[Rfam]
RNA sequence: ACUUGAUAACGGCAACCCCACCGAAAGGUGGGCACGCAAAGCUUCUGGUCUAAGGGUUUGGAUUACCUAUGACAGCAGGGCCGCCAGU
Numbered sequence: 001a002c003u004u005g006a007u008a009a010c011g012g013c014a015a016c017c018c019c020a021c022c023g024a025a026a027g028g029u030g031g032g033c034a035c036g037c038a039a040a041g042c043u044u045c046u047g048g049u050c051u052a053a054g055g056g057u058u059u060g061g062a063u064u065a066c067c068u069a070u071g072a073c074a075g076c077a078g079g080g081c082c083g084c085c086a087g088u
Stems, first nucleotide, its partner, number of pairs: 012037002017032006041081003045078003048073003055067003
RNA: c-di-GMP-I riboswitch aptamer
Organism: Massilia glaciei